[Rfam]
RNA sequence: UGGGAGGCUGAUACUCAAUGAGAGAAAAGCCAUGCUCUCCUUGUCACAAGCUCUCCCUAUAACAAGGAUGCCUUUCGAUGACCGGAACGAACUGAGGGAAAUCGUAACGGACAGAUACGGGGCACACAAUU
Numbered sequence: 001u002g003g004g005a006g007g008c009u010g011a012u013a014c015u016c017a018a019u020g021a022g023a024g025a026a027a028a029g030c031c032a033u034g035c036u037c038u039c040c041u042u043g044u045c046a047c048a049a050g051c052u053c054u055c056c057c058u059a060u061a062a063c064a065a066g067g068a069u070g071c072c073u074u075u076c077g078a079u080g081a082c083c084g085g086a087a088c089g090a091a092c093u094g095a096g097g098g099a100a101a102u103c104g105u106a107a108c109g110g111a112c113a114g115a116u117a118c119g120g121g122g123c124a125c126a127c128a129a130u131u
Base pairs, nucleotide, nucleotide: 002057003056004055005054006053007052016043017042018041022037023036024035067125069124070123071122072121073120074119082110083109084108087105088104089103090102

Small Cajal body specific RNA 8: a 131-nucleotide sequence from Anolis carolinensis. By type it is a small Cajal body RNA. The sequence is in the family's curated seed alignment. Rfam's curators write: scaRNAs are a specific class of small nuclear RNAs which localise to the Cajal bodies and guide the modification of RNA polymerase II transcribed spliceosomal RNAs U1, U2, U4, U5 and U12. U92 belong to the H/ACA box class of guide RNAs as it has the predicted hairpin-hinge-hairpin-tail structure, conserved H/ACA-box motifs and is found associated with GAR1. Its family is annotated with Cajal body, nucleolus and RNA processing in the Gene Ontology. A reference for the family is Darzacq et al. (2002), "Cajal body-specific small nuclear RNAs: a novel class of 2'-O-methylation and pseudouridylation guide RNAs", EMBO J.